The record is a 121-nucleotide RNA sequence from Streptomyces solincola, which matches "Streptomyces-metH RNA" in Rfam. It is annotated as a small RNA. Lineage of the source: Bacteria > Bacillati > Kitasatosporales > Streptomycetaceae > Streptomyces. The match comes from Rfam's covariance-model search (86 bits). Pairs were carried over by alignment from the consensus structure, which is taken from published work.
RNA sequence: CGUGUCCAGCACGUGAAUACGCGAGCCCCGCUCAAGGGCACAUGGUUACGCUGGCCCGGUGCGUCGCCAGGCCCGGUGGCGCAAAGCCGACAGUCGUCGCACCCCAGGGAGCACUUCCAUG
Dot-bracket structure: ...........................................................((((.((((......)))).))))..((.(((....))))).....................
Numbered sequence: 001c002g003u004g005u006c007c008a009g010c011a012c013g014u015g016a017a018u019a020c021g022c023g024a025g026c027c028c029c030g031c032u033c034a035a036g037g038g039c040a041c042a043u044g045g046u047u048a049c050g051c052u053g054g055c056c057c058g059g060u061g062c063g064u065c066g067c068c069a070g071g072c073c074c075g076g077u078g079g080c081g082c083a084a085a086g087c088c089g090a091c092a093g094u095c096g097u098c099g100c101a102c103c104c105c106a107g108g109g110a111g112c113a114c115u116u117c118c119a120u121g
Stems, first nucleotide, its partner, number of pairs: 060083004065078004086100002089098003